A member of the RNA family "Group I catalytic intron" from Ophiocordyceps sinensis, 292 nucleotides long. Pairs were carried over by alignment from the consensus structure, which is taken from published work. The match comes from Rfam's covariance-model search (99 bits). Taxonomically the source falls in Ophiocordyceps sinensis (Eukaryota, Pezizomycotina, leotiomyceta, Ophiocordycipitaceae). About the family: Group I catalytic introns are large self-splicing ribozymes.
RNA sequence: AUUUUAUGGUCUUGAACAAUGGCCAUAACUGUAGUGAACCUAUGGUUAAAAAUCAUCAAAUUGCGGGAAACUCCUAAAGGAAUCUUAACCAAGUAAGUAUGGUAACAUAACUUAUGGCACAGGUAAUGACUUAUGGUACGGUAAUAUCAAGAUUUAUUAUUCAAUGGGCAAUCCGCAGCCAAGUACCAACUGCCUAAGGGUAAGGGUAUGCAGUUCAUCGACUAGACGGUGAUUGGUGUUAUUAUUAUUAAUAAUGCUUAAGAUAUAGUCAGCCCCUACUUGAAAGAGUGCA
Numbered sequence: 001a002u003u004u005u006a007u008g009g010u011c012u013u014g015a016a017c018a019a020u021g022g023c024c025a026u027a028a029c030u031g032u033a034g035u036g037a038a039c040c041u042a043u044g045g046u047u048a049a050a051a052a053u054c055a056u057c058a059a060a061u062u063g064c065g066g067g068a069a070a071c072u073c074c075u076a077a078a079g080g081a082a083u084c085u086u087a088a089c090c091a092a093g094u095a096a097g098u099a100u101g102g103u104a105a106c107a108u109a110a111c112u113u114a115u116g117g118c119a120c121a122g123g124u125a126a127u128g129a130c131u132u133a134u135g136g137u138a139c140g141g142u143a144a145u146a147u148c149a150a151g152a153u154u155u156a157u158u159a160u161u162c163a164a165u166g167g168g169c170a171a172u173c174c175g176c177a178g179c180c181a182a183g184u185a186c187c188a189a190c191u192g193c194c195u196a197a198g199g200g201u202a203a204g205g206g207u208a209u210g211c212a213g214u215u216c217a218u219c220g221a222c223u224a225g226a227c228g229g230u231g232a233u234u235g236g237u238g239u240u241a242u243u244a245u246u247a248u249u250a251a252u253a254a255u256g257c258u259u260a261a262g263a264u265a266u267a268g269u270c271a272g273c274c275c276c277u278a279c280u281u282g283a284a285a286g287a288g289u290g291c292a
Stems, first nucleotide, its partner, number of pairs: 001020003031040001051234005057228001062177006072168003178214002183209004191202004218271001220270005236257009277290005